[Rfam]
RNA sequence: CUCUGCAUUCCCUGUGGAUCCCCAUCUGUGUGUUUUUUAAAAAACACACAGAUGGGGAUCCACAGGGAAUGCAGAGA
Numbered sequence: 001c002u003c004u005g006c007a008u009u010c011c012c013u014g015u016g017g018a019u020c021c022c023c024a025u026c027u028g029u030g031u032g033u034u035u036u037u038u039a040a041a042a043a044a045c046a047c048a049c050a051g052a053u054g055g056g057g058a059u060c061c062a063c064a065g066g067g068a069a070u071g072c073a074g075a076g077a
Stems, first nucleotide, its partner, number of pairs: 002075006010067003016061015
RNA: mir-10 microRNA precursor family
Organism: Melospiza melodia